[Rfam]
Small nucleolar RNA U19: a 118-nucleotide RNA from Macleaya cordata.
The organism belongs to Macleaya, within Eukaryota.
Rfam links the family to the GO terms RNA processing and nucleolus.
A search with the family's covariance model found it, with a score of 54 bits.
RNA sequence: AUCUGGCUUAGUUAAGAGGCAGAGUGUGAUGGAUUAUUUAUUAUUGAUCUUCUCAGGCCUUUUGAGGGGACUUUUAGCACUUUUCAAUCUGUUGUCCUUCCAGCAGCCUUGGACAUUU
Numbered sequence: 001a002u003c004u005g006g007c008u009u010a011g012u013u014a015a016g017a018g019g020c021a022g023a024g025u026g027u028g029a030u031g032g033a034u035u036a037u038u039u040a041u042u043a044u045u046g047a048u049c050u051u052c053u054c055a056g057g058c059c060u061u062u063u064g065a066g067g068g069g070a071c072u073u074u075u076a077g078c079a080c081u082u083u084u085c086a087a088u089c090u091g092u093u094g095u096c097c098u099u100c101c102a103g104c105a106g107c108c109u110u111g112g113a114c115a116u117u118u
Stems, first nucleotide, its partner, number of pairs: 004021002007018003032049005052112002055109004062103002064100001066099006074091001
Dot-bracket structure: ...((.(((......))).))..........(((((........)))))..((.((((...(((.((((((..(................)..))))))).))..)))).))......